[Rfam]
RNA sequence: UAUCGUUCACCUCGCUACCGCGGGGCGCAGCUCGAUCCAAGCCAUGGAACGGGGGCUUGGG
Numbered sequence: 001u002a003u004c005g006u007u008c009a010c011c012u013c014g015c016u017a018c019c020g021c022g023g024g025g026c027g028c029a030g031c032u033c034g035a036u037c038c039a040a041g042c043c044a045u046g047g048a049a050c051g052g053g054g055g056c057u058u059g060g061g
Stems, first nucleotide, its partner, number of pairs: 004051005010025005036061006042054002
Rfam assigns this 61-nucleotide sequence from Synechococcus sp. KORDI-100 to the family "Glutamine-II riboswitch aptamer". Pairs were carried over by alignment from the consensus structure, which is taken from published work. A reference for the family is Huang et al. (2019), "Structure and ligand binding of the glutamine-II riboswitch", Nucleic Acids Res. Its family is annotated with glutamine binding in the Gene Ontology. The source organism's lineage runs through Bacteria, Cyanobacteriota, Cyanophyceae, Synechococcaceae and Synechococcus. A search with the family's covariance model found it, with a score of 66 bits.